[Rfam]
RNA sequence: GGAUGUGAGGGCAAUCUAGCUGUGCGAUGUGGUAUGCCAUCGAUUGCAAGGGUUGAUUUGGCAAUUUGCUAGCUCAGGAUCUGUCCCCUUUCUUCCUCAAUGACCCAGGUGUGCUGUUCCUGAAGCUGUGUGCUUGGCUGACGAGGAACAGCCUCCCCGACAGAGAUGGUAUUGCUCAUUGGUCAAGGGUGUGUGGUAGCUGUGCUCCCCUGGUGGAAGCUCUGAGUAAGCCCAAGGUCCACAUGCAGAAGAAUGUAGGGUAGUCAAGCACUGAAUACUGAAGACAGAUCUGAAUGAGAAGCUGCAUGCAGCACAGCCUGACACUGGCU
Numbered sequence: 001g002g003a004u005g006u007g008a009g010g011g012c013a014a015u016c017u018a019g020c021u022g023u024g025c026g027a028u029g030u031g032g033u034a035u036g037c038c039a040u041c042g043a044u045u046g047c048a049a050g051g052g053u054u055g056a057u058u059u060g061g062c063a064a065u066u067u068g069c070u071a072g073c074u075c076a077g078g079a080u081c082u083g084u085c086c087c088c089u090u091u092c093u094u095c096c097u098c099a100a101u102g103a104c105c106c107a108g109g110u111g112u113g114c115u116g117u118u119c120c121u122g123a124a125g126c127u128g129u130g131u132g133c134u135u136g137g138c139u140g141a142c143g144a145g146g147a148a149c150a151g152c153c154u155c156c157c158c159g160a161c162a163g164a165g166a167u168g169g170u171a172u173u174g175c176u177c178a179u180u181g182g183u184c185a186a187g188g189g190u191g192u193g194u195g196g197u198a199g200c201u202g203u204g205c206u207c208c209c210c211u212g213g214u215g216g217a218a219g220c221u222c223u224g225a226g227u228a229a230g231c232c233c234a235a236g237g238u239c240c241a242c243a244u245g246c247a248g249a250a251g252a253a254u255g256u257a258g259g260g261u262a263g264u265c266a267a268g269c270a271c272u273g274a275a276u277a278c279u280g281a282a283g284a285c286a287g288a289u290c291u292g293a294a295u296g297a298g299a300a301g302c303u304g305c306a307u308g309c310a311g312c313a314c315a316g317c318c319u320g321a322c323a324c325u326g327g328c329u
Stems, first nucleotide, its partner, number of pairs: 001106002006099006013091002019087001024085001027082001029080002035076002037072001039070001042069001043065005114169002117165003120137004125133002139159002145156003199269003205263002208260005220251002223248001226246003230242001292329001296324001298322001301317003304312002
RNA: 7SK RNA
Organism: Dasyornis broadbenti